RNA sequence: CUCGACAAGGUUCAUCAACCAUCCCUUGUAAAAAAACUAGGAGAAA
Numbered sequence: 001c002u003c004g005a006c007a008a009g010g011u012u013c014a015u016c017a018a019c020c021a022u023c024c025c026u027u028g029u030a031a032a033a034a035a036a037c038u039a040g041g042a043g044a045a046a
Base pairs, nucleotide, nucleotide: 006028007027008026009025010024015039